[Rfam]
RNA: Small nucleolar RNA SNORA49
Organism: Equus caballus
Nucleotides: 131
Stems, first nucleotide, its partner, number of pairs: 003058007011050001017045006023038005069125003073121002082110005089104004
Number, partner (000 for none) and nucleotide at each position: 001000c002000u003058c004057c005056c006055u007054c008053a009052g010000c011050c012000u013000u014000a015000c016000u017045c018044c019043a020042g021041g022040g023038a024037c025036u026035u027034u028000u029000g030000c031000u032000g033000u034027a035026a036025a037024g038023u039000g040022c041021c042020c043019u044018g045017g046000c047000a048000u049000u050011g051000c052009c053008u054007g055006a056005g057004g058003g059000c060000a061000c062000a063000u064000g065000a066000a067000a068000a069125a070124g071123c072000a073121c074120a075000u076000a077000u078000c079000c080000c081000u082110c083109c084108c085107c086106a087000g088000u089104a090103a091102g092101a093000c094000u095000c096000u097000g098000u099000g100000u101092u102091c103090u104089u105000g106086u107085g108084g109083g110082g111000c112000c113000u114000a115000c116000a117000g118000a119000u120074u121073g122000a123071g124070c125069u126000g127000a128000c129000a130000g131000u